[Rfam]
RNA sequence: UAAGCAGGGAUUGUGUGUAUCGGCGCUGUGCUAUAAUAAAUGCACUCUGAAUCCGAAAGAGUUCCCUGCUAUAUUGAUUUCUUUGGGAAGAUGGGCAGUUGUGUUUCAUUCUCUUUUGUUGAAACUUUUCAACAAUCAUCUUCCCUACAUCA
Numbered sequence: 001u002a003a004g005c006a007g008g009g010a011u012u013g014u015g016u017g018u019a020u021c022g023g024c025g026c027u028g029u030g031c032u033a034u035a036a037u038a039a040a041u042g043c044a045c046u047c048u049g050a051a052u053c054c055g056a057a058a059g060a061g062u063u064c065c066c067u068g069c070u071a072u073a074u075u076g077a078u079u080u081c082u083u084u085g086g087g088a089a090g091a092u093g094g095g096c097a098g099u100u101g102u103g104u105u106u107c108a109u110u111c112u113c114u115u116u117u118g119u120u121g122a123a124a125c126u127u128u129u130c131a132a133c134a135a136u137c138a139u140c141u142u143c144c145c146u147a148c149a150u151c152a
Stems, first nucleotide, its partner, number of pairs: 004069007015045006085145010098133004
Dot-bracket structure: ...(((((((....((((((...................)))))).................)))))))...............((((((((((...((((............................))))..)))))))))).......
Description:
The record is a 152-nucleotide RNA from Populus trichocarpa, which matches "small nucleolar RNA snoR135" in Rfam. Rfam's curators put it in the seed alignment. Rfam links the family to the GO terms nucleolus and RNA processing. A reference for the family is Chen and Wu (2009), "Mining small RNA sequencing data: a new approach to identify small nucleolar RNAs in Arabidopsis", Nucleic Acids Res.